[Rfam]
RNA sequence: GAUUUCAUUGAUUUAACUCAAACCUGUUGUGAGUUAAGUGAAUGAAUCAUCAUUCACCAUGCUGUUUGCUGAGCUUGACUCCGGGCAGUGUGGCUAUUUU
Numbered sequence: 001g002a003u004u005u006c007a008u009u010g011a012u013u014u015a016a017c018u019c020a021a022a023c024c025u026g027u028u029g030u031g032a033g034u035u036a037a038g039u040g041a042a043u044g045a046a047u048c049a050u051c052a053u054u055c056a057c058c059a060u061g062c063u064g065u066u067u068g069c070u071g072a073g074c075u076u077g078a079c080u081c082c083g084g085g086c087a088g089u090g091u092g093g094c095u096a097u098u099u100u
Base pairs, nucleotide, nucleotide: 002047004046005045006044007043008042009041011039012038013037014036015035016034017033018032019031020030057093058092059091060090061089062088063087064086065085066084067083068082071081072080073079
A member of the RNA family "23S methyl RNA motif" from Streptococcus suis, 100 nucleotides long. Pairs were carried over by alignment from the consensus structure, which is taken from published work. For this family Rfam cites "Identification of 22 candidate structured RNAs in bacteria using the CMfinder comparative genomics pipeline" (Weinberg et al., Nucleic Acids Res, 2007). Taxonomically the source falls in Streptococcus suis (Bacteria, Bacillota, Bacilli, Streptococcaceae). Its family is annotated with regulation of gene expression in the Gene Ontology. By type it is a cis-regulatory element.